The family of this 73-nucleotide RNA from Actinocatenispora rupis is "6C RNA". The match comes from Rfam's covariance-model search (48 bits). The source organism's lineage runs through Bacteria, Actinomycetota, Actinomycetes, Micromonosporaceae and Actinocatenispora. Gene Ontology term of the family: sporulation. Pairs were carried over by alignment from the consensus structure, which is taken from published work.
[Rfam]
RNA sequence: GCGGGCCCGGCUCGACCCCCCCGGAGCCGGCCCCCCUGACGACCCCCGCCACCCCCGGCGGGGGUCGUCCCUA
Number, nucleotide and partner (000 for none) at each position: 001g000002c000003g034004g033005g032006c000007c030008c029009g028010g027011c026012u025013c024014g000015a000016c000017c000018c000019c000020c000021c000022c000023g000024g013025a012026g011027c010028c009029g008030g007031c000032c005033c004034c003035c000036c000037u000038g069039a068040c067041g066042a065043c064044c063045c062046c061047c060048g059049c058050c057051a000052c000053c000054c000055c000056c000057g050058g049059c048060g047061g046062g045063g044064g043065u042066c041067g040068u039069c038070c000071c000072u000073a000